This 360-nucleotide RNA sequence from Sphingomonas cremea belongs to the Rfam family "Alphaproteobacteria transfer-messenger RNA". It is annotated as a non-coding RNA gene. From the family's description: Bacterial tmRNA, also known as 10Sa RNA or SsrA, is named for its dual tRNA and mRNA-like properties. The base pairs follow the family's consensus structure, which is taken from published work.
[Rfam]
RNA sequence: UCACUUGCUUGGUAGGCGGCCGUCACCUAUCUUAUGCGGGCCGGGAAACCGGCUAUGUCGGUAGAGUAUCUGGUGGAAUAGGCAUUUCGGACCCGGGGGGCAGUACCCCGGCGCCUCCACCACCAGCGGCGAAGCGGUUACCUUGAAGGGUCCGCCGCUGCUGAUGGGGGCGAAAUAGGAUCGACGAGUGCAGUAAAGGCCUGGUUGCCGAUCGGUAUGAGCAGACCGCUAAAGGCUCAUUCACACAAGUGCCAACGAUAACGAGGCGCUCGCAAUUGCCGCGUAACUAAGGGCCUAACGGUCUGAAGUUACAAGGACAAAAGCGCGGUUGGACCCCACCGGGCAACAGAAGGGGAUUCC
Numbered sequence: 001u002c003a004c005u006u007g008c009u010u011g012g013u014a015g016g017c018g019g020c021c022g023u024c025a026c027c028u029a030u031c032u033u034a035u036g037c038g039g040g041c042c043g044g045g046a047a048a049c050c051g052g053c054u055a056u057g058u059c060g061g062u063a064g065a066g067u068a069u070c071u072g073g074u075g076g077a078a079u080a081g082g083c084a085u086u087u088c089g090g091a092c093c094c095g096g097g098g099g100g101c102a103g104u105a106c107c108c109c110g111g112c113g114c115c116u117c118c119a120c121c122a123c124c125a126g127c128g129g130c131g132a133a134g135c136g137g138u139u140a141c142c143u144u145g146a147a148g149g150g151u152c153c154g155c156c157g158c159u160g161c162u163g164a165u166g167g168g169g170g171c172g173a174a175a176u177a178g179g180a181u182c183g184a185c186g187a188g189u190g191c192a193g194u195a196a197a198g199g200c201c202u203g204g205u206u207g208c209c210g211a212u213c214g215g216u217a218u219g220a221g222c223a224g225a226c227c228g229c230u231a232a233a234g235g236c237u238c239a240u241u242c243a244c245a246c247a248a249g250u251g252c253c254a255a256c257g258a259u260a261a262c263g264a265g266g267c268g269c270u271c272g273c274a275a276u277u278g279c280c281g282c283g284u285a286a287c288u289a290a291g292g293g294c295c296u297a298a299c300g301g302u303c304u305g306a307a308g309u310u311a312c313a314a315g316g317a318c319a320a321a322a323g324c325g326c327g328g329u330u331g332g333a334c335c336c337c338a339c340c341g342g343g344c345a346a347c348a349g350a351a352g353g354g355g356a357u358u359c360c
Base pairs, nucleotide, nucleotide: 040053041052042051043050044049057212058211059210060209061208068205069204070203072201073200074199083190084189085188087187088186089185093111094110095109096108097107112172113171114170115169116168117167118166213228214227215226216225218239219238220237326341327340328339329338332358333357335355336354337353